[Rfam]
RNA sequence: UGACCACCCGAGCGCGGGUUAAAGGCCAUACGGACAGCCAGGUCAACUGCCGA
Number, nucleotide and partner (000 for none) at each position: 001u045002g044003a043004c042005c041006a019007c018008c017009c016010g015011a000012g000013c000014g000015c010016g009017g008018g007019u006020u000021a000022a000023a000024g000025g000026c000027c000028a000029u000030a000031c000032g000033g000034a000035c000036a000037g000038c000039c000040a000041g005042g004043u003044c002045a001046a000047c000048u000049g000050c000051c000052g000053a000
Annotation
The record is a 53-nucleotide RNA sequence, which matches "Streptococcus sRNA SpF59 (ldcC RNA)" in Rfam. On this family, see Mann et al., PLoS Pathog 2012: "Control of virulence by small RNAs in Streptococcus pneumoniae". The family's consensus secondary structure was predicted with mfold.